[Rfam]
RNA: Bacterial RNase P class A
Organism: Pedobacter frigoris
RNA sequence: AAUGCAAGCCGUUCUAUCGCUGCAAUUUAAUUAUUGGAGAGGAAAGUCCGGGCAACGCAGAGCAUCUCGCUUCCUAACGGGAAGAGGACUGGGAUUGAACACCCAGGCUAUGGAAAGUGCCGCAGAAAGCAUACCGCCGAUGGCCUGAAAAGGCACAGGUAAGGUUGAAAACGUGAGGUAAGAGCUCACGAGUUUUGCCAGUGAUGGUAAGGCUGGUAAACCCCGGGAGUUGAAAGACCAAAUAGGCUAACGCAUGUAGGGCUGCUCGUCCGAUGUUAGUGGGUAGGUCGUUAGAGAUAAAUGGCGACAUUUAUAGUGGAUUAAUGAUAGAAUCCUUAUUUAUUGAGGAACAGAACCCGGCUUACAGGCUUGCAUUUUUU
Numbered sequence: 001a002a003u004g005c006a007a008g009c010c011g012u013u014c015u016a017u018c019g020c021u022g023c024a025a026u027u028u029a030a031u032u033a034u035u036g037g038a039g040a041g042g043a044a045a046g047u048c049c050g051g052g053c054a055a056c057g058c059a060g061a062g063c064a065u066c067u068c069g070c071u072u073c074c075u076a077a078c079g080g081g082a083a084g085a086g087g088a089c090u091g092g093g094a095u096u097g098a099a100c101a102c103c104c105a106g107g108c109u110a111u112g113g114a115a116a117g118u119g120c121c122g123c124a125g126a127a128a129g130c131a132u133a134c135c136g137c138c139g140a141u142g143g144c145c146u147g148a149a150a151a152g153g154c155a156c157a158g159g160u161a162a163g164g165u166u167g168a169a170a171a172c173g174u175g176a177g178g179u180a181a182g183a184g185c186u187c188a189c190g191a192g193u194u195u196u197g198c199c200a201g202u203g204a205u206g207g208u209a210a211g212g213c214u215g216g217u218a219a220a221c222c223c224c225g226g227g228a229g230u231u232g233a234a235a236g237a238c239c240a241a242a243u244a245g246g247c248u249a250a251c252g253c254a255u256g257u258a259g260g261g262c263u264g265c266u267c268g269u270c271c272g273a274u275g276u277u278a279g280u281g282g283g284u285a286g287g288u289c290g291u292u293a294g295a296g297a298u299a300a301a302u303g304g305c306g307a308c309a310u311u312u313a314u315a316g317u318g319g320a321u322u323a324a325u326g327a328u329a330g331a332a333u334c335c336u337u338a339u340u341u342a343u344u345g346a347g348g349a350a351c352a353g354a355a356c357c358c359g360g361c362u363u364a365c366a367g368g369c370u371u372g373c374a375u376u377u378u379u380u
Stems, first nucleotide, its partner, number of pairs: 001376010011365001012332007020039002023036004044363003048360005053232004060267004065228005070084005085111001086109002089106005112223002117221002119217003134164002136160003141157002143154004172190006192213009236289004246280006259271004297314007
Dot-bracket structure: ((((((((((((((((((.((.((((......)))).))....[[[.[[[[[((((...[[[[.((((((((((.....)))))(((.(((((........))))).)).)((...(((((............(((((..((((((....)))).)))))..)).......((((((.......)))))).(((((((((....))))))))).)))..)))))))))))))...((((......((((((.......((((.]]]]))))...)))))).....)))).......(((((((....)))))))...........))))))).......................]]]]]]]].).))))))))))....